Annotation
This 114-nucleotide RNA sequence from Microscilla marina belongs to the Rfam family "SAM riboswitch aptamer (S box leader)".

RNA sequence: GAUUUAUUGAGAAGAGGUGAGAGAACAGGCUCCUAGACCCUCUGGCAACCAUCAUCAACUAUUGAGAACGGUGCCAAGUCCUGCCCCAAGUAUAAUGAAUGGGAAAAAUAAAUU
Numbered sequence: 001g002a003u004u005u006a007u008u009g010a011g012a013a014g015a016g017g018u019g020a021g022a023g024a025a026c027a028g029g030c031u032c033c034u035a036g037a038c039c040c041u042c043u044g045g046c047a048a049c050c051a052u053c054a055u056c057a058a059c060u061a062u063u064g065a066g067a068a069c070g071g072u073g074c075c076a077a078g079u080c081c082u083g084c085c086c087c088a089a090g091u092a093u094a095a096u097g098a099a100u101g102g103g104a105a106a107a108a109u110a111a112a113u114u
Base pairs, nucleotide, nucleotide: 001114002113003112004111005110006109007108008107013043014042015041016040017039021032022031023030026083027082028081029080044075045074046073047072049071050070052066079106084103085102086101

The source organism's lineage runs through Bacteria, Cytophagia, Microscillaceae, Microscilla and Microscilla marina. It scores 69 bits against the family's covariance model.